RNA sequence: CUCUUAUCAAGAGUGGUGGAGGGACUGGCCCUAUGAAGCCCGGCAACCAGUAUUCAUUUAGAAUAAAAUGGUGCCAAUUCUUGCAAUCUUAUUAAGAUUGACAGAUGAGAG
Numbered sequence: 001c002u003c004u005u006a007u008c009a010a011g012a013g014u015g016g017u018g019g020a021g022g023g024a025c026u027g028g029c030c031c032u033a034u035g036a037a038g039c040c041c042g043g044c045a046a047c048c049a050g051u052a053u054u055c056a057u058u059u060a061g062a063a064u065a066a067a068a069u070g071g072u073g074c075c076a077a078u079u080c081u082u083g084c085a086a087u088c089u090u091a092u093u094a095a096g097a098u099u100g101a102c103a104g105a106u107g108a109g110a111g
Stems, first nucleotide, its partner, number of pairs: 001111008013041001015040003021031003025083001027081002042075004047071002051065004079103001084100006
The record is a 111-nucleotide RNA sequence from Selenihalanaerobacter shriftii, which matches "SAM riboswitch aptamer (S box leader)" in Rfam. Its family is annotated with regulation of gene expression in the Gene Ontology. It scores 96 bits against the family's covariance model. The source organism's lineage runs through Bacteria, Bacillati, Bacillota, Halanaerobiales and Selenihalanaerobacter.